Rfam assigns this 143-nucleotide sequence from Cavia porcellus to the family "Small nucleolar RNA SNORA29". For this family Rfam cites "RNomics: an experimental approach that identifies 201 candidates for novel, small, non-messenger RNAs in mouse" (Huttenhofer et al., EMBO J, 2001). Rfam 15.1 lists 960 matches to the family in 621 species. About the family: ACA29 is a member of the H/ACA class of snoRNA that guide the sites of modification of uridines to pseudouridines. The family's RNA type in Rfam is H/ACA-box small nucleolar RNA. A search with the family's covariance model found it, with a score of 94 bits.

[Rfam]
RNA sequence: UUACCCAUAAGAAAUGUACAUUAAAUAUAAAAGUGCAAGUAAUUUUAGUGGCUUUGCUUAUGGGAUAGAUAAAAUGGCCACAAUCUGAAGAAAGAGGGUCCUUUAGUGUCUUCCUCCCAUAUGAAAUGGCUGAACAGAAUUUU
Number, nucleotide and partner (000 for none) at each position: 001u000002u000003a000004c064005c063006c062007a061008u000009a000010a000011g000012a000013a000014a000015u000016g000017u050018a049019c048020a000021u000022u000023a000024a000025a000026u000027a000028u000029a000030a000031a000032a000033g000034u000035g000036c000037a000038a000039g000040u000041a000042a000043u000044u000045u000046u000047a000048g019049u018050g017051g000052c000053u000054u000055u000056g000057c000058u000059u000060a000061u007062g006063g005064g004065a000066u000067a000068g000069a000070u000071a000072a000073a000074a000075u000076g000077g130078c129079c128080a127081c000082a000083a000084u000085c000086u000087g000088a000089a000090g000091a000092a000093a000094g000095a000096g117097g116098g115099u000100c000101c000102u000103u000104u000105a000106g000107u000108g000109u000110c000111u000112u000113c000114c000115u098116c097117c096118c000119a000120u000121a000122u000123g000124a000125a000126a000127u080128g079129g078130c077131u000132g000133a000134a000135c000136a000137g000138a000139a000140u000141u000142u000143u000